[Rfam]
RNA sequence: UCCCGCCCCGCGCCCGGGUUAUGGCGCGGAACCUCCCUGUUGGACUGCCCGGGCCUUGCGCCCGGGCUUUUUU
Numbered sequence: 001u002c003c004c005g006c007c008c009c010g011c012g013c014c015c016g017g018g019u020u021a022u023g024g025c026g027c028g029g030a031a032c033c034u035c036c037c038u039g040u041u042g043g044a045c046u047g048c049c050c051g052g053g054c055c056u057u058g059c060g061c062c063c064g065g066g067c068u069u070u071u072u073u
Stems, first nucleotide, its partner, number of pairs: 008029007047067008
Shown here is a 73-nucleotide RNA from Candidatus Rhodobacter oscarellae, a member of the family "Singlet oxygen resistance RNA X". The family's RNA type in Rfam is small RNA. NCBI's taxonomy places the organism under Bacteria, Pseudomonadota, Alphaproteobacteria, Rhodobacterales, Rhodobacter. Rfam's curators write: SorX (RSs2461)like SorY is a singlet oxygen induced sRNA that counteracts oxidative stress by targeting mRNA for a transporter in Rhodobacter. It also has an impact on resistance against organic hydroperoxides. It targets SD sequence of potA mRNA via an aSD sequence. The family has 8 seed sequences and 528 matches in Rfam 15.1.